[Rfam]
RNA sequence: UGCAAACGAUGCUAAUCUCUUGUCUAAAUACACUUGAUGACAACCACCAAGAUCGCUGAUGCA
Numbered sequence: 001u002g003c004a005a006a007c008g009a010u011g012c013u014a015a016u017c018u019c020u021u022g023u024c025u026a027a028a029u030a031c032a033c034u035u036g037a038u039g040a041c042a043a044c045c046a047c048c049a050a051g052a053u054c055g056c057u058g059a060u061g062c063a
Base pairs, nucleotide, nucleotide: 001063002062003061004060
Shown here is a 63-nucleotide sequence from Syrrhaptes paradoxus, a member of the family "Small nucleolar RNA SNORD24". The literature on the family includes a 1995 paper in Nucleic Acids Res by Qu et al., "U24, a novel intron-encoded small nucleolar RNA with two 12 nt long, phylogenetically conserved complementarities to 28S rRNA". The base pairs follow the family's consensus structure, which was predicted with PFOLD. The match comes from Rfam's covariance-model search (43 bits).